The family of this 73-nucleotide RNA sequence from Methanospirillum hungatei is "tRNA".
Rfam links the family to the GO term triplet codon-amino acid adaptor activity.
The family's RNA type in Rfam is transfer RNA.
RNA sequence: GGGCUCGUAGCUCAGCUGGAAGAGCGCGGCGUUUGCAACGCCGAGGCCUGGGGUUCAAAUCCCCACGGGUCCA
Numbered sequence: 001g002g003g004c005u006c007g008u009a010g011c012u013c014a015g016c017u018g019g020a021a022g023a024g025c026g027c028g029g030c031g032u033u034u035g036c037a038a039c040g041c042c043g044a045g046g047c048c049u050g051g052g053g054u055u056c057a058a059a060u061c062c063c064c065a066c067g068g069g070u071c072c073a
Stems, first nucleotide, its partner, number of pairs: 001072007010025004027043005049065005

Rfam describes the family as follows. Transfer RNA (tRNA) molecules are approximately 80 nucleotides in length. Pairs were carried over by alignment from the consensus structure, which is taken from published work. Taxonomically the source falls in Methanospirillum (Archaea, Methanobacteriota, Methanomicrobiales, Methanospirillaceae).